[Rfam]
RNA sequence: UGCUUAUCUAGAGAGGUGGAGGGAUUGGCCCGAUGAAACCUCAGCAACCGGUCACUUAAGAUACGGUGCUAAUUCCAAUAAGCGUAUUGCUUUGAAGAUAAGUC
Numbered sequence: 001u002g003c004u005u006a007u008c009u010a011g012a013g014a015g016g017u018g019g020a021g022g023g024a025u026u027g028g029c030c031c032g033a034u035g036a037a038a039c040c041u042c043a044g045c046a047a048c049c050g051g052u053c054a055c056u057u058a059a060g061a062u063a064c065g066g067u068g069c070u071a072a073u074u075c076c077a078a079u080a081a082g083c084g085u086a087u088u089g090c091u092u093u094g095a096a097g098a099u100a101a102g103u104c
Stems, first nucleotide, its partner, number of pairs: 002103007013042005021031003025078004043070004048066002050062001052060001074096001080092005
RNA: SAM riboswitch aptamer (S box leader)
Organism: Sporolactobacillus laevolacticus